About this RNA: This 218-nucleotide RNA sequence belongs to the Rfam family "IS605-orfB-I RNA". The family's RNA type in Rfam is small RNA.
[Rfam]
RNA sequence: GCCCUAUAUAGAUGUAUUCAACGCUAGACAGUUGGGCAUCUCCCUGUAGGAUGAAGUUUAAUUAGAAGCUCUGGCAAUAAUUUUCAUCGUGUGGCUAAAGUCGAAAUGGAAUGAGUCAGAGUGGAAUAGGUUAACCGUAAGACCUUGAGUUGAAAAACUCUAAAAUUGAGCUAGAGAUACGGGAGUUUUGAAAUUUCGUAUUUUCUAGUUACGGUGCU
Dot-bracket structure: (.((((((.((((((..((((((.....).)))))))))))...)))))).)...............((((((((......((((((.....((......))...))))))...)))))))).....[[[[[.(((((((]]]]].(((((....))))).....)....((((((((((((((.........))))))).))))))).))))))...
Numbered sequence: 001g002c003c004c005u006a007u008a009u010a011g012a013u014g015u016a017u018u019c020a021a022c023g024c025u026a027g028a029c030a031g032u033u034g035g036g037c038a039u040c041u042c043c044c045u046g047u048a049g050g051a052u053g054a055a056g057u058u059u060a061a062u063u064a065g066a067a068g069c070u071c072u073g074g075c076a077a078u079a080a081u082u083u084u085c086a087u088c089g090u091g092u093g094g095c096u097a098a099a100g101u102c103g104a105a106a107u108g109g110a111a112u113g114a115g116u117c118a119g120a121g122u123g124g125a126a127u128a129g130g131u132u133a134a135c136c137g138u139a140a141g142a143c144c145u146u147g148a149g150u151u152g153a154a155a156a157a158c159u160c161u162a163a164a165a166u167u168g169a170g171c172u173a174g175a176g177a178u179a180c181g182g183g184a185g186u187u188u189u190g191a192a193a194u195u196u197c198g199u200a201u202u203u204u205c206u207a208g209u210u211a212c213g214g215u216g217c218u
Stems, first nucleotide, its partner, number of pairs: 001052001003050006010041006018035005023029001068122008082111006093102002128145005134215006140166001147160005171208007178200007

Notes
The sequence is in the family's curated seed alignment.